[Rfam]
RNA sequence: CCAUGCAUGAAUUUCACGCACUGGGCCUCUAGUAUAUAUAUAUAUAUAUAUAUUAGAGGCCUGGUGCAUGAAUUUGUGCAUGGGU
Number, nucleotide and partner (000 for none) at each position: 001c083002c082003a000004u080005g079006c078007a077008u076009g075010a074011a073012u000013u072014u071015c070016a000017c000018g067019c066020a065021c064022u063023g062024g061025g060026c059027c058028u057029c056030u055031a054032g053033u052034a051035u050036a000037u000038a000039u000040a000041u000042a000043u000044a000045u000046a000047u000048a000049u000050a035051u034052a033053u032054u031055a030056g029057a028058g027059g026060c025061c024062u023063g022064g021065u020066g019067c018068a000069u000070g015071a014072a013073u011074u010075u009076g008077u007078g006079c005080a004081u000082g002083g001084g000085u000
A member of the RNA family "mir-9243 microRNA precursor family" from Cnephaeus nilssonii, 85 nucleotides long. Taxonomically the source falls in Cnephaeus (Eukaryota, Opisthokonta, Eumetazoa, Eutheria).